Rfam assigns this 395-nucleotide RNA from Candidatus [Bacteroides] periocalifornicus to the family "Bacterial RNase P class A". The match comes from Rfam's covariance-model search (212 bits). The organism belongs to Bacteroidota, within Bacteria. By type it is a ribozyme.
RNA sequence: AUGGGUGAACGCGCAGCCGCGGGUGCAAACCGCAUCUGAGGAAAGUCCGGGCACUAGAGGGCAACCUGCUCCCUAACAGAGAGAAGCCUGUAAGGGCUAGUGCAUCCAGAAGAAAAUAACCGCCUGCAACCAGUUUGCAGGUAAGGGUGAGAAGGUGGGGUAAGAGCCUACCGCCAGAAUUGGCGACAGUUCUGAGCGUGGAUGCCCAGGUAGUGCAAGAUCAAAUAGACCUCUUCCGUCGCGGUGCAGACGGACGUGCGGCCCGUGCGUGGGCAUCCCAAGAGGUGGGUAGAUCGCUAGAAUAUGCGCAGUAAUGCCAUAUCCAGAUAGAUGGCUGCGAUGCUGGACGAUACCGCUCAGCGUACAGAACCCGGCUUACAUGCUUGCCCAUGCGC
Numbered sequence: 001a002u003g004g005g006u007g008a009a010c011g012c013g014c015a016g017c018c019g020c021g022g023g024u025g026c027a028a029a030c031c032g033c034a035u036c037u038g039a040g041g042a043a044a045g046u047c048c049g050g051g052c053a054c055u056a057g058a059g060g061g062c063a064a065c066c067u068g069c070u071c072c073c074u075a076a077c078a079g080a081g082a083g084a085a086g087c088c089u090g091u092a093a094g095g096g097c098u099a100g101u102g103c104a105u106c107c108a109g110a111a112g113a114a115a116a117u118a119a120c121c122g123c124c125u126g127c128a129a130c131c132a133g134u135u136u137g138c139a140g141g142u143a144a145g146g147g148u149g150a151g152a153a154g155g156u157g158g159g160g161u162a163a164g165a166g167c168c169u170a171c172c173g174c175c176a177g178a179a180u181u182g183g184c185g186a187c188a189g190u191u192c193u194g195a196g197c198g199u200g201g202a203u204g205c206c207c208a209g210g211u212a213g214u215g216c217a218a219g220a221u222c223a224a225a226u227a228g229a230c231c232u233c234u235u236c237c238g239u240c241g242c243g244g245u246g247c248a249g250a251c252g253g254a255c256g257u258g259c260g261g262c263c264c265g266u267g268c269g270u271g272g273g274c275a276u277c278c279c280a281a282g283a284g285g286u287g288g289g290u291a292g293a294u295c296g297c298u299a300g301a302a303u304a305u306g307c308g309c310a311g312u313a314a315u316g317c318c319a320u321a322u323c324c325a326g327a328u329a330g331a332u333g334g335c336u337g338c339g340a341u342g343c344u345g346g347a348c349g350a351u352a353c354c355g356c357u358c359a360g361c362g363u364a365c366a367g368a369a370c371c372c373g374g375c376u377u378a379c380a381u382g383c384u385u386g387c388c389c390a391u392g393c394g395c
Stems, first nucleotide, its partner, number of pairs: 001391008010382001011379001012339007020038007043377003047374005052215004060274001062272001064211005069083003073079001085098004102205001106201003120146002122142008154172006174196001175194008219295004229286006269277001302322005308317003